[Rfam]
RNA sequence: GUCUGUUCAGGCGAUGGAGUCCGCCUGUCCCAACCGCCAUUCUGGCUGAUGACUCCUACUGAACA
Numbered sequence: 001g002u003c004u005g006u007u008c009a010g011g012c013g014a015u016g017g018a019g020u021c022c023g024c025c026u027g028u029c030c031c032a033a034c035c036g037c038c039a040u041u042c043u044g045g046c047u048g049a050u051g052a053c054u055c056c057u058a059c060u061g062a063a064c065a
Base pairs, nucleotide, nucleotide: 010025011024012023013022016056017055018054019053020052021051036046037045038044
The family of this 65-nucleotide RNA sequence is "Fluoride riboswitch aptamer (crcB RNA motif)". The family's consensus secondary structure is taken from published work.